[Rfam]
RNA: Ascomycota telomerase RNA, nucleotides 1129 to 1564
Organism: Cryphonectria parasitica
RNA sequence: AUCACACGGAAAGAGCCUCUCCUAUCGUGGUCCUGGUGGCACUUGUCACCGUAUCUUGCGUCGAUGUCGGCGUUGCUGUGUCGAUGACGACUGGCCAUCAUUCUCGGAGCGCUGGCGCGCGAGCAUUGUGCGUCUUUGCGGGUGUGAUGUUCCCACGGAGAUGGACACUUGCUGUCUUGGACGACCCUUGCUAAGUUCGGCACGUUCAGUGAGGUUGUUCGCCUGAUCUGCAGUGGAAUCGGGACCCAUCUCGAGUUGGAGUCAAAGUUUUGUACUUGUCUGGUUUCGCUGUGGAGAUGGCGGAUGACCUUGCCUGGGCCGCCCUACGAAGGCAUGGGGUCCUCGAGAAUUUGUUGGAAAGGGGCAGGCUCAUGAAGAGUAGCCCUGGCUGGUCCUUCUUCAGAAAUGACGAAGGGACAGCCCUCCUUCCUAGGGG
Numbered sequence: 001a002u003c004a005c006a007c008g009g010a011a012a013g014a015g016c017c018u019c020u021c022c023u024a025u026c027g028u029g030g031u032c033c034u035g036g037u038g039g040c041a042c043u044u045g046u047c048a049c050c051g052u053a054u055c056u057u058g059c060g061u062c063g064a065u066g067u068c069g070g071c072g073u074u075g076c077u078g079u080g081u082c083g084a085u086g087a088c089g090a091c092u093g094g095c096c097a098u099c100a101u102u103c104u105c106g107g108a109g110c111g112c113u114g115g116c117g118c119g120c121g122a123g124c125a126u127u128g129u130g131c132g133u134c135u136u137u138g139c140g141g142g143u144g145u146g147a148u149g150u151u152c153c154c155a156c157g158g159a160g161a162u163g164g165a166c167a168c169u170u171g172c173u174g175u176c177u178u179g180g181a182c183g184a185c186c187c188u189u190g191c192u193a194a195g196u197u198c199g200g201c202a203c204g205u206u207c208a209g210u211g212a213g214g215u216u217g218u219u220c221g222c223c224u225g226a227u228c229u230g231c232a233g234u235g236g237a238a239u240c241g242g243g244a245c246c247c248a249u250c251u252c253g254a255g256u257u258g259g260a261g262u263c264a265a266a267g268u269u270u271u272g273u274a275c276u277u278g279u280c281u282g283g284u285u286u287c288g289c290u291g292u293g294g295a296g297a298u299g300g301c302g303g304a305u306g307a308c309c310u311u312g313c314c315u316g317g318g319c320c321g322c323c324c325u326a327c328g329a330a331g332g333c334a335u336g337g338g339g340u341c342c343u344c345g346a347g348a349a350u351u352u353g354u355u356g357g358a359a360a361g362g363g364g365c366a367g368g369c370u371c372a373u374g375a376a377g378a379g380u381a382g383c384c385c386u387g388g389c390u391g392g393u394c395c396u397u398c399u400u401c402a403g404a405a406a407u408g409a410c411g412a413a414g415g416g417a418c419a420g421c422c423c424u425c426c427u428u429c430c431u432a433g434g435g436g
Stems, first nucleotide, its partner, number of pairs: 243263003246259003265277004